[Rfam]
RNA sequence: AUGAAGGCAGCGGGAGAGACUACCUGUAACACGGGGCGGCGCCGAAGGAGUAAGCCCUGGGGACAGGGUGAAUCUCUCAGGCAAAAGGACCUUUGCCGGACG
Numbered sequence: 001a002u003g004a005a006g007g008c009a010g011c012g013g014g015a016g017a018g019a020c021u022a023c024c025u026g027u028a029a030c031a032c033g034g035g036g037c038g039g040c041g042c043c044g045a046a047g048g049a050g051u052a053a054g055c056c057c058u059g060g061g062g063a064c065a066g067g068g069u070g071a072a073u074c075u076c077u078c079a080g081g082c083a084a085a086a087g088g089a090c091c092u093u094u095g096c097c098g099g100a101c102g
Base pairs, nucleotide, nucleotide: 006097007096008095009094010093012091013090020039021038023036041082042081043080044078045077048076049075050074054069055068056067057066058065059064
Overview:
A member of the RNA family "Glycine riboswitch aptamer" from Paenibacillus sp. D9, 102 nucleotides long.